[Rfam]
A member of the RNA family "ASpks TB sRNA" from Streptomyces albireticuli, 72 nucleotides long. Rfam classes the family as an antisense RNA. NCBI's taxonomy places the organism under Bacteria, Bacillati, Actinomycetota, Actinomycetes, Streptomyces. A search with the family's covariance model found it, with a score of 69 bits. The base pairs follow the family's consensus structure, which is taken from published work.
RNA sequence: CUUCAGCGAGCCCAGCCACAACGGCUCACCCGGGCGCUCCCGCCCGUACGUCGCCAGCAACGCCCCCGCCUC
Numbered sequence: 001c002u003u004c005a006g007c008g009a010g011c012c013c014a015g016c017c018a019c020a021a022c023g024g025c026u027c028a029c030c031c032g033g034g035c036g037c038u039c040c041c042g043c044c045c046g047u048a049c050g051u052c053g054c055c056a057g058c059a060a061c062g063c064c065c066c067c068g069c070c071u072c
Stems, first nucleotide, its partner, number of pairs: 014026004031068003035062002040057001042055001044053001046051001